[Rfam]
RNA sequence: CAACCAGGUAGAGGUCGCGAGGUUCAUUAACCCUGUCGAGUGAAGCAACACUUUGACGCAGGACUAGGGAACAUCGCCGAAACGCUUUUUUAGCUGCUUUCUAAAAAACGUUGGGUCGCAAGUGAAUAAUUUGCGAACUGUCUUAGUUUCGACUAAGGUGCGCUAUGUUUUGU
Number, nucleotide and partner (000 for none) at each position: 001c000002a000003a000004c000005c000006a168007g000008g166009u165010a164011g163012a000013g000014g000015u000016c000017g077018c076019g075020a074021g000022g072023u071024u070025c069026a000027u000028u000029a000030a000031c000032c062033c061034u060035g059036u058037c000038g000039a000040g000041u000042g000043a000044a000045g000046c000047a000048a000049c000050a000051c000052u000053u000054u000055g000056a000057c000058g036059c035060a034061g033062g032063a000064c000065u000066a000067g000068g000069g025070a024071a023072c022073a000074u020075c019076g018077c017078c000079g000080a000081a112082a111083c110084g109085c000086u107087u106088u105089u104090u103091u000092a000093g000094c000095u000096g000097c000098u000099u000100u000101c000102u000103a090104a089105a088106a087107a086108a000109c084110g083111u082112u081113g139114g138115g000116u136117c135118g134119c133120a132121a131122g130123u129124g000125a000126a000127u000128a000129a123130u122131u121132u120133g119134c118135g117136a116137a000138c114139u113140g000141u158142c157143u156144u155145a154146g153147u152148u000149u000150c000151g000152a147153c146154u145155a144156a143157g142158g141159u000160g000161c000162g000163c011164u010165a009166u008167g000168u006169u000170u000171u000172g000173u000
RNA: Lysine riboswitch aptamer
Organism: Enterococcus aquimarinus